The family of this 94-nucleotide sequence from Medicago truncatula is "MIR2587 microRNA precursor family". Taxonomically the source falls in Medicago (Eukaryota, Embryophyta, Tracheophyta, fabids).
RNA sequence: GUGUCAUGGUCAUUGUUGACCAUUCAUAUAAUCGCUGCAAUUGAUUUGCAGCUUAUGCAGAGAUUAUACGACGGUCAACGUAGACCUUUGACAC
Numbered sequence: 001g002u003g004u005c006a007u008g009g010u011c012a013u014u015g016u017u018g019a020c021c022a023u024u025c026a027u028a029u030a031a032u033c034g035c036u037g038c039a040a041u042u043g044a045u046u047u048g049c050a051g052c053u054u055a056u057g058c059a060g061a062g063a064u065u066a067u068a069c070g071a072c073g074g075u076c077a078a079c080g081u082a083g084a085c086c087u088u089u090g091a092c093a094c
Stems, first nucleotide, its partner, number of pairs: 001094006008086004014080008023071002027068007035060005043052001